[Rfam]
RNA sequence: AUACUCCGGUUUCUCUUCAAAACGCAUAAAUCUUUCGCCUUUUACUAAAUAUUACAUGGGAGAUACUUAUACUGAGAAAUUACACAUUAUCUGAAAUUCAAAUUUAAGUAGGCAU
Numbered sequence: 001a002u003a004c005u006c007c008g009g010u011u012u013c014u015c016u017u018c019a020a021a022a023c024g025c026a027u028a029a030a031u032c033u034u035u036c037g038c039c040u041u042u043u044a045c046u047a048a049a050u051a052u053u054a055c056a057u058g059g060g061a062g063a064u065a066c067u068u069a070u071a072c073u074g075a076g077a078a079a080u081u082a083c084a085c086a087u088u089a090u091c092u093g094a095a096a097u098u099c100a101a102a103u104u105u106a107a108g109u110a111g112g113c114a115u
Base pairs, nucleotide, nucleotide: 004076005075006074009066010065012063013062014061015060017059018058019057029053030052031051033049034048035047095115097114099112102109
RNA: U5 spliceosomal RNA